[Rfam]
RNA sequence: GGUAAGACAAGGAAGAAAAGAAAACUGGUAGGAUGAGCCGGGCUCAUCCUACCAGUUUUCUUUUCUUCCUUGUCUUACCU
Numbered sequence: 001g002g003u004a005a006g007a008c009a010a011g012g013a014a015g016a017a018a019a020g021a022a023a024a025c026u027g028g029u030a031g032g033a034u035g036a037g038c039c040g041g042g043c044u045c046a047u048c049c050u051a052c053c054a055g056u057u058u059u060c061u062u063u064u065c066u067u068c069c070u071u072g073u074c075u076u077a078c079c080u
Stems, first nucleotide, its partner, number of pairs: 001079009011069013025055006032048007
The record is an 80-nucleotide sequence from Branchiostoma lanceolatum, which matches "mir-5928 microRNA precursor family" in Rfam. The source organism's lineage runs through Eukaryota, Opisthokonta, Eumetazoa, Chordata and Branchiostoma. Gene Ontology terms of the family: miRNA-mediated post-transcriptional gene silencing and RISC complex.